[Rfam]
RNA sequence: UCCCUGCUUUUCCUCCCUGAGCAGGUGCCUUACCGUGAUGACAGCGAUAAGGCUUGCUGGCCCCGGCCCCCGGCCGGGGCCUCCUUUUU
Numbered sequence: 001u002c003c004c005u006g007c008u009u010u011u012c013c014u015c016c017c018u019g020a021g022c023a024g025g026u027g028c029c030u031u032a033c034c035g036u037g038a039u040g041a042c043a044g045c046g047a048u049a050a051g052g053c054u055u056g057c058u059g060g061c062c063c064c065g066g067c068c069c070c071c072g073g074c075c076g077g078g079g080c081c082u083c084c085u086u087u088u089u
Stems, first nucleotide, its partner, number of pairs: 003025006027053006060080008